[Rfam]
RNA sequence: CCCGCAGAACUGCUUGCCCCUUAUACUGGCGAUAUUGUUGCAGAAGGGAUCAGCAAGACCCUGCGCGGUGGGGCUACGUUUUUAUGCCGUACCGUUCAACGUCAGCAGCGUUAUGUUGCCGAAGCGAUCACCGAAGAGUGGCGCAUGGCCCCGGGCCCGCUGGAAGUUGCAUGGUUUGCCGAAGAAACCGCUGCCGUUGAGCGUGCGGUCGACUCCCUGGCCAAACGGCUGGAAAAACUGGAGGCCAAAUGA
Numbered sequence: 001c002c003c004g005c006a007g008a009a010c011u012g013c014u015u016g017c018c019c020c021u022u023a024u025a026c027u028g029g030c031g032a033u034a035u036u037g038u039u040g041c042a043g044a045a046g047g048g049a050u051c052a053g054c055a056a057g058a059c060c061c062u063g064c065g066c067g068g069u070g071g072g073g074c075u076a077c078g079u080u081u082u083u084a085u086g087c088c089g090u091a092c093c094g095u096u097c098a099a100c101g102u103c104a105g106c107a108g109c110g111u112u113a114u115g116u117u118g119c120c121g122a123a124g125c126g127a128u129c130a131c132c133g134a135a136g137a138g139u140g141g142c143g144c145a146u147g148g149c150c151c152c153g154g155g156c157c158c159g160c161u162g163g164a165a166g167u168u169g170c171a172u173g174g175u176u177u178g179c180c181g182a183a184g185a186a187a188c189c190g191c192u193g194c195c196g197u198u199g200a201g202c203g204u205g206c207g208g209u210c211g212a213c214u215c216c217c218u219g220g221c222c223a224a225a226c227g228g229c230u231g232g233a234a235a236a237a238c239u240g241g242a243g244g245c246c247a248a249a250u251g252a
Stems, first nucleotide, its partner, number of pairs: 001244002005240001006082005012054003016050001019047004027040005063074002066071001086213001088211002090208001093205003100143005115128005148179002152174001154172001157169001159167003186198003190194001216232002219229001221228002
RNA: Erse small RNA